The family of this 75-nucleotide RNA sequence from Alligator mississippiensis is "Mammalian CPEB3 ribozyme". The mammalian CPEB3 ribozyme is a self cleaving RNA located in the second intron of the CPEB3 gene which belongs to a family of genes regulating messenger RNA polyadenylation. This ribozyme is highly conserved and found only in mammals. The CPEB3 ribozyme is structurally and biochemically related to the human hepatitis delta virus (HDV) ribozyme and the HDV ribozyme is proposed to have arisen from the human transcriptome. There is currently only one other known self cleaving ribozyme in mammals, the CoTC motif. The family's consensus secondary structure is taken from published work. The organism belongs to Alligator, within Eukaryota.
RNA sequence: AGUGUAAUAUAUAGCCCCAGCAGAAGUGCUCAUGAUGGCAACCUGUCAGAUUCCACCAAAUCUGCUAAUUCUGCU
Numbered sequence: 001a002g003u004g005u006a007a008u009a010u011a012u013a014g015c016c017c018c019a020g021c022a023g024a025a026g027u028g029c030u031c032a033u034g035a036u037g038g039c040a041a042c043c044u045g046u047c048a049g050a051u052u053c054c055a056c057c058a059a060a061u062c063u064g065c066u067a068a069u070u071c072u073g074c075u
Stems, first nucleotide, its partner, number of pairs: 014039003019075007026036002047064006